[Rfam]
RNA: Bacterial RNase P class A
Organism: Dankookia rubra
RNA sequence: UCAGGUGGCCAGACGACCGCUGGUCCCCGCUGCGAGGCGGGGCUGGAGGAAAGUCCGGGCUCCACGGGAAAACGGUGCCGGCUAACGGCCGGCGAGGGCGACCUCAGGGACAGUGCCACAGAGAGCAGACCGCCCGCGCACCGCAAGGUCCGCGGGUAAGGGUGAAAGGGUGCGGCAAGAGCGCACCGCGCCCCCGGCAACGGGGGCGGCAUGGUAAACCCCACCGGGAGCAAGGCCGAAUAGGGGUGGUCGGCGGCGUUCCUUCGGGAGCGUGACGCGAGGGCCUUCCCGCCCCACCACCCGGGUUGGCCGCGUGAGGUACGCCGCGAGGCGUGCCCCAGAGGAAUGGUCGUCACAUCCCCGGCUUGCCGGGGGUGGACAGAACCCGGCUUACCGGCCACCUGGCGCA
Numbered sequence: 001u002c003a004g005g006u007g008g009c010c011a012g013a014c015g016a017c018c019g020c021u022g023g024u025c026c027c028c029g030c031u032g033c034g035a036g037g038c039g040g041g042g043c044u045g046g047a048g049g050a051a052a053g054u055c056c057g058g059g060c061u062c063c064a065c066g067g068g069a070a071a072a073c074g075g076u077g078c079c080g081g082c083u084a085a086c087g088g089c090c091g092g093c094g095a096g097g098g099c100g101a102c103c104u105c106a107g108g109g110a111c112a113g114u115g116c117c118a119c120a121g122a123g124a125g126c127a128g129a130c131c132g133c134c135c136g137c138g139c140a141c142c143g144c145a146a147g148g149u150c151c152g153c154g155g156g157u158a159a160g161g162g163u164g165a166a167a168g169g170g171u172g173c174g175g176c177a178a179g180a181g182c183g184c185a186c187c188g189c190g191c192c193c194c195c196g197g198c199a200a201c202g203g204g205g206g207c208g209g210c211a212u213g214g215u216a217a218a219c220c221c222c223a224c225c226g227g228g229a230g231c232a233a234g235g236c237c238g239a240a241u242a243g244g245g246g247u248g249g250u251c252g253g254c255g256g257c258g259u260u261c262c263u264u265c266g267g268g269a270g271c272g273u274g275a276c277g278c279g280a281g282g283g284c285c286u287u288c289c290c291g292c293c294c295c296a297c298c299a300c301c302c303g304g305g306u307u308g309g310c311c312g313c314g315u316g317a318g319g320u321a322c323g324c325c326g327c328g329a330g331g332c333g334u335g336c337c338c339c340a341g342a343g344g345a346a347u348g349g350u351c352g353u354c355a356c357a358u359c360c361c362c363g364g365c366u367u368g369c370c371g372g373g374g375g376u377g378g379a380c381a382g383a384a385c386c387c388g389g390c391u392u393a394c395c396g397g398c399c400a401c402c403u404g405g406c407g408c409a
Stems, first nucleotide, its partner, number of pairs: 001405010012354007020046008051392003055389005060230004068290001071287001073226005078092005093107001094105004108221002113219002115215003130161002132157007140149003169187006188210001189208008234311004244302006281295003285291001318337008